[Rfam]
RNA sequence: UGUUGUAAUCCCAAUGCAGGGAAGUUUAUGUUGGACGGCGGUUCGAUUCCGCCCAGCUCCACCAAAAGCGUUACUAUGGUUUAAGGUUUGGCCUUACCGGCGUAGCGAAAAUGGCGUCACAAGUUAGAGCGCUUUUGAUGGGGCUGACCAGGUUUCGACAGCGUAGGUAACUCACAUUGGCAACACGGUAGGCGAUGACCGUAUAAAUCAAGCAAAAACUGUAAACGCAAAUGAUGCGAAUUACGCUGUUGCAGCCUAG
Numbered sequence: 001u002g003u004u005g006u007a008a009u010c011c012c013a014a015u016g017c018a019g020g021g022a023a024g025u026u027u028a029u030g031u032u033g034g035a036c037g038g039c040g041g042u043u044c045g046a047u048u049c050c051g052c053c054c055a056g057c058u059c060c061a062c063c064a065a066a067a068g069c070g071u072u073a074c075u076a077u078g079g080u081u082u083a084a085g086g087u088u089u090g091g092c093c094u095u096a097c098c099g100g101c102g103u104a105g106c107g108a109a110a111a112u113g114g115c116g117u118c119a120c121a122a123g124u125u126a127g128a129g130c131g132c133u134u135u136u137g138a139u140g141g142g143g144c145u146g147a148c149c150a151g152g153u154u155u156c157g158a159c160a161g162c163g164u165a166g167g168u169a170a171c172u173c174a175c176a177u178u179g180g181c182a183a184c185a186c187g188g189u190a191g192g193c194g195a196u197g198a199c200c201g202u203a204u205a206a207a208u209c210a211a212g213c214a215a216a217a218a219c220u221g222u223a224a225a226c227g228c229a230a231a232u233g234a235u236g237c238g239a240a241u242u243a244c245g246c247u248g249u250u251g252c253a254g255c256c257u258a259g
Stems, first nucleotide, its partner, number of pairs: 001185005015174002027165003031161003037053005054146007186201004

permuted transfer-messenger RNA: a 259-nucleotide RNA from Methylotenera sp. Bacterial tmRNA, also known as 10Sa RNA or SsrA, is named for its dual tRNA and mRNA-like properties. Its role is to liberate the mRNA from a stalled ribosome. To accomplish this part of the tmRNA is used as a reading frame that ends in a translation stop signal. The broken mRNA is replaced in the ribosome by the tmRNA and translation of the tmRNA leads to addition of a proteolysis tag to the incomplete protein enabling recognition by a protease. The base pairs follow the family's consensus structure, which is taken from published work.